Annotation: This 83-nucleotide RNA sequence from Haemonchus contortus belongs to the Rfam family "mir-5918 microRNA precursor family". Rfam 15.1 lists 5 matches to the family in 2 species.
[Rfam]
Nucleotides: 083
Base pairs, nucleotide, nucleotide: 002082003081004080005079007077008076009075010074011073014070015069016068017067018066019065020064021063022062023061024060025059026057027056029054033052035050036049037048038047
Number, partner (000 for none) and nucleotide at each position: 001000c002082u003081g004080a005079u006000a007077g008076g009075a010074u011073a012000a013000c014070g015069g016068g017067u018066a019065g020064c021063a022062c023061g024060a025059u026057u027056g028000u029054g030000a031000g032000a033052c034000a035050a036049g037048c038047u039000u040000g041000c042000g043000c044000a045000g046000a047038a048037g049036c050035u051000c052033g053000c054029u055000c056027u057026a058000c059025a060024u061023c062022g063021u064020g065019u066018u067017a068016c069015c070014c071000a072000a073011u074010g075009u076008c077007u078000c079005a080004u081003c082002g083000c
The base pairs follow the family's consensus structure, which was predicted with RNAalifold. It is one of the family's seed sequences.